[Rfam]
RNA sequence: GGCUGGUCCGAAGGUAGUGAGUUUUCUCACUUAAUUGUUCAUGGUCGGUUACAGAUUGAACUCCUUGUUCUACUACUUUCCCCCCUUCUCACUACUGCACUUGACUAGUGUUUA
Numbered sequence: 001g002g003c004u005g006g007u008c009c010g011a012a013g014g015u016a017g018u019g020a021g022u023u024u025u026c027u028c029a030c031u032u033a034a035u036u037g038u039u040c041a042u043g044g045u046c047g048g049u050u051a052c053a054g055a056u057u058g059a060a061c062u063c064c065u066u067g068u069u070c071u072a073c074u075a076c077u078u079u080c081c082c083c084c085c086u087u088c089u090c091a092c093u094a095c096u097g098c099a100c101u102u103g104a105c106u107a108g109u110g111u112u113u114a
Stems, first nucleotide, its partner, number of pairs: 002109007010102002014098002016093006044074001047071002
Shown here is a 114-nucleotide RNA from Microcebus murinus, a member of the family "Y RNA". The organism belongs to Microcebus, within Eukaryota. The family's consensus secondary structure is taken from published work. Y RNAs are components of the Ro ribonucleoprotein particle (Ro RNP), in association with Ro60 and La proteins. The Y RNAs and Ro60 and La proteins are well conserved, but the function of the Ro RNP is not known. In humans the RNA component can be one of four small RNAs -- hY1, hY3, hY4 and hY5.